Shown here is an 84-nucleotide sequence from Senna tora, a member of the family "Small nucleolar RNA R32/R81/Z41". A reference for the family is Barneche et al. (2001), "Identification of 66 box C/D snoRNAs in Arabidopsis thaliana: extensive gene duplications generated multiple isoforms predicting new ribosomal RNA 2'-O-methylation sites", J Mol Biol.

[Rfam]
RNA sequence: UGACGAAAAGGAUGAAAGCAAAUUAAAGGAUGGGUGAUCAUCAAUGAUCCAAUAUAUCCUCGCUACGUUCUUUCUGAUUCGUCU
Dot-bracket structure: ...((((......................................................................))))...
Numbered sequence: 001u002g003a004c005g006a007a008a009a010g011g012a013u014g015a016a017a018g019c020a021a022a023u024u025a026a027a028g029g030a031u032g033g034g035u036g037a038u039c040a041u042c043a044a045u046g047a048u049c050c051a052a053u054a055u056a057u058c059c060u061c062g063c064u065a066c067g068u069u070c071u072u073u074c075u076g077a078u079u080c081g082u083c084u
Stems, first nucleotide, its partner, number of pairs: 004081004